Rfam assigns this 160-nucleotide RNA sequence from a Bacteroidaceae bacterium to the family "RT-3 RNA". Lineage of the source: Bacteria > Pseudomonadati > Bacteroidia > Bacteroidales > Bacteroidaceae. The family's consensus secondary structure is taken from published work. By type it is a small RNA.
RNA sequence: AAUCGUGUGACCCUGCAAGACAACGAGAUUGUCACCGCAUUCCGCGAAGGGUAUGAGCCUCGGCAACAGCAAAUAGGCCUCACACGGCAAGUUUGGAAAGCCGAAAAAUGACAAUAACCUUACAAAGUGGAGUGUCGCUUAGGCGACCUCCACGGGACCG
Numbered sequence: 001a002a003u004c005g006u007g008u009g010a011c012c013c014u015g016c017a018a019g020a021c022a023a024c025g026a027g028a029u030u031g032u033c034a035c036c037g038c039a040u041u042c043c044g045c046g047a048a049g050g051g052u053a054u055g056a057g058c059c060u061c062g063g064c065a066a067c068a069g070c071a072a073a074u075a076g077g078c079c080u081c082a083c084a085c086g087g088c089a090a091g092u093u094u095g096g097a098a099a100g101c102c103g104a105a106a107a108a109u110g111a112c113a114a115u116a117a118c119c120u121u122a123c124a125a126a127g128u129g130g131a132g133u134g135u136c137g138c139u140u141a142g143g144c145g146a147c148c149u150c151c152a153c154g155g156g157a158c159c160g
Stems, first nucleotide, its partner, number of pairs: 003047004009042002014039003019033005049059002060104005070095005118160001121157001127153006137144002